Shown here is a 150-nucleotide RNA from Thermobrachium celere, a member of the family "glmS glucosamine-6-phosphate activated ribozyme aptamer". The literature on the family includes a 2004 paper in Nature by Winkler et al., "Control of gene expression by a natural metabolite-responsive ribozyme". Rfam classes the family as a riboswitch. Taxonomically the source falls in Thermobrachium celere (Bacteria, Bacillati, Bacillota, Clostridiaceae). Gene Ontology terms of the family: catalytic activity and regulation of gene expression. A search with the family's covariance model found it, with a score of 107 bits.

RNA sequence: ACAAAAAUAAAAGCGCCGGGACUUACCAAUGGUAAGUUGACGAGGACAGGGUUUAUCGAGUAAUCGGCGGAUGCCCUGCGGCUGACCACCGAAAGCGGCCAGACAAAACCUAAAAGCGAUUUUAGGGACAAAGGGGCCAGGUCAAAGACA
Numbered sequence: 001a002c003a004a005a006a007a008u009a010a011a012a013g014c015g016c017c018g019g020g021a022c023u024u025a026c027c028a029a030u031g032g033u034a035a036g037u038u039g040a041c042g043a044g045g046a047c048a049g050g051g052u053u054u055a056u057c058g059a060g061u062a063a064u065c066g067g068c069g070g071a072u073g074c075c076c077u078g079c080g081g082c083u084g085a086c087c088a089c090c091g092a093a094a095g096c097g098g099c100c101a102g103a104c105a106a107a108a109c110c111u112a113a114a115a116g117c118g119a120u121u122u123u124a125g126g127g128a129c130a131a132a133g134g135g136g137c138c139a140g141g142u143c144a145a146a147g148a149c150a
Stems, first nucleotide, its partner, number of pairs: 020038008047078005056067004079091003096140001097138004109126007